The family of this 133-nucleotide RNA sequence from Phyllostomus discolor is "Small nucleolar RNA SNORA8". Rfam 15.1 lists 1,490 matches to the family in 610 species. The base pairs follow the family's consensus structure, which was predicted with RNAfold. From the family's description: ACA8 is a member of the H/ACA class of snoRNA that guide the sites of modification of uridines to pseudouridines. NCBI's taxonomy places the organism under Eukaryota, Gnathostomata, Dipnotetrapodomorpha, Boreoeutheria, Phyllostomus.

[Rfam]
RNA sequence: UGCACUGCCUGGCACCUGCACUCAGCAGUUGACUCUUGCUGGGUGUCCAAAGGACAGUGAGAUAAGUUCAGUAUCUGGCAUUGUUGAUUUUCUUGGCUUUGUGCAUGCUAAACCUGAUAUUUUUGCUACAGCA
Numbered sequence: 001u002g003c004a005c006u007g008c009c010u011g012g013c014a015c016c017u018g019c020a021c022u023c024a025g026c027a028g029u030u031g032a033c034u035c036u037u038g039c040u041g042g043g044u045g046u047c048c049a050a051a052g053g054a055c056a057g058u059g060a061g062a063u064a065a066g067u068u069c070a071g072u073a074u075c076u077g078g079c080a081u082u083g084u085u086g087a088u089u090u091u092c093u094u095g096g097c098u099u100u101g102u103g104c105a106u107g108c109u110a111a112a113c114c115u116g117a118u119a120u121u122u123u124u125g126c127u128a129c130a131g132c133a
Stems, first nucleotide, its partner, number of pairs: 003059005015053003018046011064122004068117004078104004